[Rfam]
RNA sequence: UAUGGAUGCGGGUAAUUACAUUACACCGAGUAAAACCCUUAAGUGAUAGAAAUAUUAAGCGUACUGCAAGUACGUCACUGGGGUUUGGGCCCCACUUAGGUGGGACUUUUAAAGUUAA
Numbered sequence: 001u002a003u004g005g006a007u008g009c010g011g012g013u014a015a016u017u018a019c020a021u022u023a024c025a026c027c028g029a030g031u032a033a034a035a036c037c038c039u040u041a042a043g044u045g046a047u048a049g050a051a052a053u054a055u056u057a058a059g060c061g062u063a064c065u066g067c068a069a070g071u072a073c074g075u076c077a078c079u080g081g082g083g084u085u086u087g088g089g090c091c092c093c094a095c096u097u098a099g100g101u102g103g104g105a106c107u108u109u110u111a112a113a114g115u116u117a118a
Stems, first nucleotide, its partner, number of pairs: 007030001009028003012024003033086006042079004046055003059075006087108003091104005
Dot-bracket structure: ......(.((((((.......))).))).)..((((((...(((((((....)))...((((((.....)))))))))).))))))(((.(((((....))))).)))..........